[Rfam]
RNA sequence: GUCACCGUGAGGUGGGGUGGGGAGCAACCGGAAGCGAACAGGCAGUCCGUAGGAUAACGAACCCGAUUCGGCGGGAUGUAGUGGCGAGCCUCCGAUCGCAUGGCGAAGCCUGAAAAUCACCUCUUGCGUUGGAAAUGGCUGGUAAAACGACGAGAGGACGCAUUUUGUGGUUGGGGACGGAAUGUCGGGAAGGUGAAUCGA
Numbered sequence: 001g002u003c004a005c006c007g008u009g010a011g012g013u014g015g016g017g018u019g020g021g022g023a024g025c026a027a028c029c030g031g032a033a034g035c036g037a038a039c040a041g042g043c044a045g046u047c048c049g050u051a052g053g054a055u056a057a058c059g060a061a062c063c064c065g066a067u068u069c070g071g072c073g074g075g076a077u078g079u080a081g082u083g084g085c086g087a088g089c090c091u092c093c094g095a096u097c098g099c100a101u102g103g104c105g106a107a108g109c110c111u112g113a114a115a116a117u118c119a120c121c122u123c124u125u126g127c128g129u130u131g132g133a134a135a136u137g138g139c140u141g142g143u144a145a146a147a148c149g150a151c152g153a154g155a156g157g158a159c160g161c162a163u164u165u166u167g168u169g170g171u172u173g174g175g176g177a178c179g180g181a182a183u184g185u186c187g188g189g190a191a192g193g194u195g196a197a198u199c200g201a
Base pairs, nucleotide, nucleotide: 002015003014004013005012006011029200030199031198034194035193039188041186042185043184045183046181047180048179049178050177062176063175064174066172071168072167073166075164076163077162078161079160081159083110084109085108088104089103090102